MIR845_2 microRNA precursor family: a 120-nucleotide RNA from Vitis rotundifolia. The match comes from Rfam's covariance-model search (113 bits). A reference for the family is Jaillon et al. (2007), "The grapevine genome sequence suggests ancestral hexaploidization in major angiosperm phyla", Nature. Its family is annotated with miRNA-mediated post-transcriptional gene silencing and RISC complex in the Gene Ontology. The family's consensus secondary structure was predicted with WAR.
RNA sequence: AGAAUGUACAUUAAUUAUCCAUGGGGCCAUGGGAUAAACAAAAAUAAGUUAGCACACCCUAGAAUGGUUCUAGAACGAUUACUAACCUAUAGCUUUGAUACCAGUUGAUGGGAAAAACCC
Number, nucleotide and partner (000 for none) at each position: 001a000002g000003a000004a000005u000006g000007u000008a000009c110010a109011u108012u107013a106014a105015u104016u103017a000018u000019c000020c000021a000022u097023g096024g095025g094026g093027c092028c000029a090030u089031g088032g087033g086034a000035u000036a000037a000038a000039c000040a000041a000042a069043a068044a000045u066046a065047a000048g000049u062050u061051a060052g059053c000054a000055c000056a000057c000058c000059c052060u051061a050062g049063a000064a000065u046066g045067g000068u043069u042070c000071u000072a000073g000074a000075a000076c000077g000078a000079u000080u000081a000082c000083u000084a000085a000086c033087c032088u031089a030090u029091a000092g027093c026094u025095u024096u023097g022098a000099u000100a000101c000102c000103a016104g015105u014106u013107g012108a011109u010110g009111g000112g000113a000114a000115a000116a000117a000118c000119c000120c000